RNA sequence: CUUAGCAUUAACUCGUCCUUAGGAGUUUCGCGUUAGGGUUUCGGUCAUCCAGUCCUCUGGAUCUGAGUGGCUAUCCACUCUGUUUGACGCCUCCCUGUUAACUUCCUGAGCCGCCGCAUGGCGGCUCUUUUUUU
Dot-bracket structure: ((.((........).(...(((..........))))....).))...((((......))))...((((((....)))))).....((((......))))........((((((((....)))))))).......
Annotation
This 134-nucleotide RNA from Methyloceanibacter sp. belongs to the Rfam family "Alphaproteobacterial sRNA BjrC1505". The organism belongs to Methyloceanibacter, within Bacteria. It scores 82 bits against the family's covariance model.